[Rfam]
The record is a 119-nucleotide RNA from Glycine soja, which matches "MIR4374 microRNA precursor family" in Rfam. Pairs were carried over by alignment from the consensus structure, which was predicted with RNAalifold. Lineage of the source: Eukaryota > Streptophyta > Embryophyta > eudicotyledons > Glycine subgen. Soja. It scores 113 bits against the family's covariance model.
RNA sequence: CAAAGACGAUGUUUACAUCAACAACGUCUUUGAAAGUAGGCAUUCUAAGACAUUGCUGAAGUAAGCACCGUCUUUGAAUGCUUACUUUCAAAGAUGUUGCUGAGGUAAACACCGUCUUA
Numbered sequence: 001c002a003a004a005g006a007c008g009a010u011g012u013u014u015a016c017a018u019c020a021a022c023a024a025c026g027u028c029u030u031u032g033a034a035a036g037u038a039g040g041c042a043u044u045c046u047a048a049g050a051c052a053u054u055g056c057u058g059a060a061g062u063a064a065g066c067a068c069c070g071u072c073u074u075u076g077a078a079u080g081c082u083u084a085c086u087u088u089c090a091a092a093g094a095u096g097u098u099g100c101u102g103a104g105g106u107a108a109a110c111a112c113c114g115u116c117u118u119a
Stems, first nucleotide, its partner, number of pairs: 004117004010111007018103003022099018041080005047074005054067004